A member of the RNA family "Small nucleolar RNA SNORA4" from Phyllostomus discolor, 145 nucleotides long. The family has 7 seed sequences and 290 matches in Rfam 15.1. The match comes from Rfam's covariance-model search (115 bits). Rfam's curators write: ACA4 is a member of the H/ACA class of snoRNA that guide the sites of modification of uridines to pseudouridines.
Nucleotides: 145
Stems, first nucleotide, its partner, number of pairs: 004067005012062001015059003023055002026051002029048001030045002033042001080140001083137005094125005100119006
Number, partner (000 for none) and nucleotide at each position: 001000a002000u003000a004067c005066c006065a007064a008063a009000a010000g011000u012062g013000u014000u015059u016058u017057u018000u019000u020000u021000u022000u023055a024054g025000g026051g027050g028000a029048a030045g031044g032000g033042u034000u035000u036000u037000c038000u039000a040000a041000u042033a043000a044031c045030c046000u047000u048029u049000a050027c051026c052000a053000a054024c055023u056000u057017g058016g059015g060000c061000u062012u063008u064007u065006u066005g067004g068000g069000a070000g071000a072000a073000u074000a075000a076000a077000u078000g079000a080140a081000a082000a083137c084136c085135a086134u087133a088000g089000u090000c091000c092000a093000c094125a095124g096123u097122g098121g099000g100119c101118u102117a103116u104115g105114u106000c107000a108000c109000u110000a111000a112000a113000c114105a115104u116103a117102u118101a119100g120000g121098u122097c123096a124095c125094u126000a127000c128000u129000a130000u131000u132000u133087u134086g135085u136084g137083g138000c139000c140080u141000a142000c143000a144000u145000u
NCBI's taxonomy places the organism under Eukaryota, Eumetazoa, Vertebrata, Laurasiatheria, Phyllostomus. Pairs were carried over by alignment from the consensus structure, which was predicted with PFOLD.